[Rfam]
RNA sequence: AAUAAUCAUGAAGAGUGGCACGAUGAGAUCUGGCUCGAUGACUGCCCGGCAACCUUUCUUCCAAAAGGUGCUAAUGCCAGAAUCCAUGAGGUCAAAGAUGGCAAACGGAAUCAUGAGA
Numbered sequence: 001a002a003u004a005a006u007c008a009u010g011a012a013g014a015g016u017g018g019c020a021c022g023a024u025g026a027g028a029u030c031u032g033g034c035u036c037g038a039u040g041a042c043u044g045c046c047c048g049g050c051a052a053c054c055u056u057u058c059u060u061c062c063a064a065a066a067g068g069u070g071c072u073a074a075u076g077c078c079a080g081a082a083u084c085c086a087u088g089a090g091g092u093c094a095a096a097g098a099u100g101g102c103a104a105a106c107g108g109a110a111u112c113a114u115g116a117g118a
Stems, first nucleotide, its partner, number of pairs: 006089005015047001017046004048072003053068003056064002091102004

Rfam assigns this 118-nucleotide sequence from a Desulfobacteraceae bacterium to the family "SAM-I/IV (S-adenosyl methionine) riboswitch aptamer". Taxonomically the source falls in Desulfobacteraceae (Bacteria, Thermodesulfobacteriota, Desulfobacteria, Desulfobacterales). The base pairs follow the family's consensus structure, which is taken from published work. The literature on the family includes a 2014 paper in PNAS by Trausch et al., "Structural basis for diversity in the SAM clan of riboswitches".